This 330-nucleotide RNA from Psychroflexus salis belongs to the Rfam family "Bacterial RNase P class A". It scores 189 bits against the family's covariance model.
[Rfam]
RNA sequence: GCAGCAGACCGCCUUAUCGCUGUUCAUCUAAAUUUUAUUUUCGAUGAAAAGAGGAAAGUCCGGACACCAAAGCAUGGCAUAGCGGGUAACGCCCGUCAUCUUAAUUUUUAAGAUAGGACAAGUGCAACAGAAAGGAUGUACAGGUAAUGCUGUAGUGAAAUCAGGUAAACUCUAUGCGGUGAAAUACCAUGUAAACCAAGGCUUGAGACUUAUGCGGUUAACUUGGAGGGUAGGUAGCUUGAACGUAUGAGUAAUUGUGCGUCUAGAUAAAUGAUAAGGAUUCCGAUAAAUAUCGGAAUACAGAAUCCGGCUUAUAGGUCUGCUUUUUUU
Numbered sequence: 001g002c003a004g005c006a007g008a009c010c011g012c013c014u015u016a017u018c019g020c021u022g023u024u025c026a027u028c029u030a031a032a033u034u035u036u037a038u039u040u041u042c043g044a045u046g047a048a049a050a051g052a053g054g055a056a057a058g059u060c061c062g063g064a065c066a067c068c069a070a071a072g073c074a075u076g077g078c079a080u081a082g083c084g085g086g087u088a089a090c091g092c093c094c095g096u097c098a099u100c101u102u103a104a105u106u107u108u109u110a111a112g113a114u115a116g117g118a119c120a121a122g123u124g125c126a127a128c129a130g131a132a133a134g135g136a137u138g139u140a141c142a143g144g145u146a147a148u149g150c151u152g153u154a155g156u157g158a159a160a161u162c163a164g165g166u167a168a169a170c171u172c173u174a175u176g177c178g179g180u181g182a183a184a185u186a187c188c189a190u191g192u193a194a195a196c197c198a199a200g201g202c203u204u205g206a207g208a209c210u211u212a213u214g215c216g217g218u219u220a221a222c223u224u225g226g227a228g229g230g231u232a233g234g235u236a237g238c239u240u241g242a243a244c245g246u247a248u249g250a251g252u253a254a255u256u257g258u259g260c261g262u263c264u265a266g267a268u269a270a271a272u273g274a275u276a277a278g279g280a281u282u283c284c285g286a287u288a289a290a291u292a293u294c295g296g297a298a299u300a301c302a303g304a305a306u307c308c309g310g311c312u313u314a315u316a317g318g319u320c321u322g323c324u325u326u327u328u329u330u
Stems, first nucleotide, its partner, number of pairs: 001326001003324008011315001012279007020051002023048006056313003060310005065181004072215004077177005082096005097116001098114006117172002122170002124166002185236004196226005207219004243262008